[Rfam]
RNA sequence: GGAACGAAGCGGGGGUGCUCCCAUUCUGGAGCUGAGACAUACCCUUGGAACCUGAUCCGGUUAGCACCGGCGUAGGAAAGCUUCAGCGCUCAUGCC
Dot-bracket structure: .....(((((((((.((((((......)))))......)..)))).....((((..((((......))))..))))...)))))............